[Rfam]
RNA: mir-49 microRNA precursor family
Organism: Caenorhabditis remanei
RNA sequence: UACCGAUCCGCAGUUUCUUAUGAUGUGCUCCGAGCCAACAUGUGUUCGAAGCACCACGAGAAGCUGCAGAUGGAG
Numbered sequence: 001u002a003c004c005g006a007u008c009c010g011c012a013g014u015u016u017c018u019u020a021u022g023a024u025g026u027g028c029u030c031c032g033a034g035c036c037a038a039c040a041u042g043u044g045u046u047c048g049a050a051g052c053a054c055c056a057c058g059a060g061a062a063g064c065u066g067c068a069g070a071u072g073g074a075g
Stems, first nucleotide, its partner, number of pairs: 003073002006071003010067010021056002025054005031048002034045002